[Rfam]
RNA sequence: GGAGAGGUGGCCGAGUCGGCCGAAGGCGCUCGCCUGCUAAGCGAGUGAGCCCCUAACCGGGCUCCGAGGGUUCGAAUCCCUCCCUCUCCG
Dot-bracket structure: (((((((..(((............))).(((((.......)))))....................(((((.......)))))))))))).
This 90-nucleotide sequence from Flexistipes sinusarabici belongs to the Rfam family "tRNA". Taxonomically the source falls in Flexistipes sinusarabici (Bacteria, Deferribacteres, Flexistipitaceae, Flexistipes). Rfam classes the family as a transfer RNA. The base pairs follow the family's consensus structure, which is taken from published work. It scores 60 bits against the family's covariance model.